[Rfam]
RNA: Small nucleolar RNA snoR74
Organism: Manihot esculenta
RNA sequence: AAAAAAGCAGGGUCUUGUUGUCUCUUGUGAACUGGGCUCUCGUAAACUUCAGGAAAAUCACUUCCAUUGUUAUUGGGUGAACCUCUGUUUUUCUGUUUGUGGCUGAAGGUUCAGUAAAUGAUGAUACAUUU
Numbered sequence: 001a002a003a004a005a006a007g008c009a010g011g012g013u014c015u016u017g018u019u020g021u022c023u024c025u026u027g028u029g030a031a032c033u034g035g036g037c038u039c040u041c042g043u044a045a046a047c048u049u050c051a052g053g054a055a056a057a058u059c060a061c062u063u064c065c066a067u068u069g070u071u072a073u074u075g076g077g078u079g080a081a082c083c084u085c086u087g088u089u090u091u092u093c094u095g096u097u098u099g100u101g102g103c104u105g106a107a108g109g110u111u112c113a114g115u116a117a118a119u120g121a122u123g124a125u126a127c128a129u130u131u
Stems, first nucleotide, its partner, number of pairs: 005049003011038002014035002017032001065123007078113007